[Rfam]
RNA sequence: GCCUGCCGGGCCUGAUCCUUUGCUCAACCUGUGAUCGUAAACCUAGUAUUACCCUCCUUGUGCGGGAGGAGGUGAGCAAAGUUUCAGGUGCGUUAGUUG
Numbered sequence: 001g002c003c004u005g006c007c008g009g010g011c012c013u014g015a016u017c018c019u020u021u022g023c024u025c026a027a028c029c030u031g032u033g034a035u036c037g038u039a040a041a042c043c044u045a046g047u048a049u050u051a052c053c054c055u056c057c058u059u060g061u062g063c064g065g066g067a068g069g070a071g072g073u074g075a076g077c078a079a080a081g082u083u084u085c086a087g088g089u090g091c092g093u094u095a096g097u098u099g
Stems, first nucleotide, its partner, number of pairs: 003096003007092001010089006018081004023076004028072003
The record is a 99-nucleotide sequence from Daphnia magna, which matches "mir-87 microRNA precursor family" in Rfam. Rfam 15.1 lists 420 matches to the family in 285 species. Taxonomically the source falls in Daphnia (Eukaryota, Eumetazoa, Panarthropoda, Diplostraca). A search with the family's covariance model found it, with a score of 49 bits.